Background
This 120-nucleotide RNA from Streptomyces bingchenggensis belongs to the Rfam family "Streptomyces-metK RNA". The sequence is in the family's curated seed alignment.

[Rfam]
RNA sequence: GUGGGACGGGGAUGCUCGACCGGUGACCGUGCCGGAUAAACUGGCCGAGGAACCGCACCGAGCGCAGCUCUCGAGCGGUCCCAACCAUGAUCAGCCAGCAGCCGCUGCAACCCCAGGGAG
Numbered sequence: 001g002u003g004g005g006a007c008g009g010g011g012a013u014g015c016u017c018g019a020c021c022g023g024u025g026a027c028c029g030u031g032c033c034g035g036a037u038a039a040a041c042u043g044g045c046c047g048a049g050g051a052a053c054c055g056c057a058c059c060g061a062g063c064g065c066a067g068c069u070c071u072c073g074a075g076c077g078g079u080c081c082c083a084a085c086c087a088u089g090a091u092c093a094g095c096c097a098g099c100a101g102c103c104g105c106u107g108c109a110a111c112c113c114c115a116g117g118g119a120g
Stems, first nucleotide, its partner, number of pairs: 049082002052079003059073004096107004